[Rfam]
Nucleotides: 086
Base pairs, nucleotide, nucleotide: 013056014055015054016053017052018051019050020040021039022038023037024036025035
Number, partner (000 for none) and nucleotide at each position: 001000g002000a003000u004000c005000a006000g007000c008000a009000c010000a011000g012000u013056g014055g015054u016053g017052u018051a019050g020040g021039u022038g023037a024036c025035a026000c027000a028000g029000g030000g031000a032000a033000g034000u035025u036024g037023u038022c039021a040020c041000a042000u043000c044000g045000g046000a047000a048000c049000u050019c051018u052017g053016c054015a055014c056013c057000c058000g059000g060000a061000a062000g063000a064000c065000u066000u067000g068000c069000a070000a071000a072000g073000g074000u075000g076000a077000u078000u079000u080000c081000c082000a083000u084000u085000u086000c

HTH-XRE RNA: an 86-nucleotide RNA sequence. By type it is a cis-regulatory element. It is one of the family's seed sequences.